[Rfam]
RNA: mir-160 microRNA precursor family
RNA sequence: AUAUGCCUGGCUCCCUGUAUGCCAUUUGCAGAGCCUAUUGAACUUCGAUAGCCUCCGUGAAUGGCGUAUGAGGAGCCAUGCAUGU
Numbered sequence: 001a002u003a004u005g006c007c008u009g010g011c012u013c014c015c016u017g018u019a020u021g022c023c024a025u026u027u028g029c030a031g032a033g034c035c036u037a038u039u040g041a042a043c044u045u046c047g048a049u050a051g052c053c054u055c056c057g058u059g060a061a062u063g064g065c066g067u068a069u070g071a072g073g074a075g076c077c078a079u080g081c082a083u084g085u
Stems, first nucleotide, its partner, number of pairs: 001085006008078007016070009027059003